[Rfam]
Nucleotides: 115
Stems, first nucleotide, its partner, number of pairs: 001080004009038001011037006021030002039067003044063003048058002083104001085102007
Number, partner (000 for none) and nucleotide at each position: 001080g002079g003078u004077c005000a006000u007000g008000a009038g010000c011037g012036c013035c014034a015033g016032c017000g018000c019000g020000a021030a022029g023000c024000c025000c026000c027000g028000g029022c030021u031000c032016g033015c034014u035013g036012g037011c038009c039067g040066g041065c042000a043000a044063c045062c046061c047000c048058c049057u050000g051000c052000u053000c054000g055000c056000g057049g058048g059000c060000g061046g062045g063044g064000u065041g066040c067039c068000c069000c070000g071000g072000g073000u074000g075000a076000g077004g078003a079002c080001c081000u082000g083104g084000u085102c086101c087100g088099g089098c090097g091096c092000a093000c094000c095000c096091g097090u098089g099088c100087c101086g102085g103000u104083c105000a106000a107000g108000c109000c110000g111000c112000g113000a114000u115000g